[Rfam]
RNA sequence: CGCUGAGCAUCGCCGAGUCGAGGCGGCGCCCGUGCGCCGUGGAGAGCCGGGGACCCACCUUCUCGUUGGGGUGAGUCGUCCGACGCGAGGGCGAUCCGAACCGGGAGAUCCCGGAGCGGAUUCCCCGCGCGCGGACGUAGGAGACCUUCCUGCUCCGAACCCGUCAGCUAACCCGGUAGGCGAGAGGGAAGGAAAGG
Numbered sequence: 001c002g003c004u005g006a007g008c009a010u011c012g013c014c015g016a017g018u019c020g021a022g023g024c025g026g027c028g029c030c031c032g033u034g035c036g037c038c039g040u041g042g043a044g045a046g047c048c049g050g051g052g053a054c055c056c057a058c059c060u061u062c063u064c065g066u067u068g069g070g071g072u073g074a075g076u077c078g079u080c081c082g083a084c085g086c087g088a089g090g091g092c093g094a095u096c097c098g099a100a101c102c103g104g105g106a107g108a109u110c111c112c113g114g115a116g117c118g119g120a121u122u123c124c125c126c127g128c129g130c131g132c133g134g135a136c137g138u139a140g141g142a143g144a145c146c147u148u149c150c151u152g153c154u155c156c157g158a159a160c161c162c163g164u165c166a167g168c169u170a171a172c173c174c175g176g177u178a179g180g181c182g183a184g185a186g187g188g189a190a191g192g193a194a195a196g197g
Stems, first nucleotide, its partner, number of pairs: 011182004018045002046177006056068002069162003077137006140156004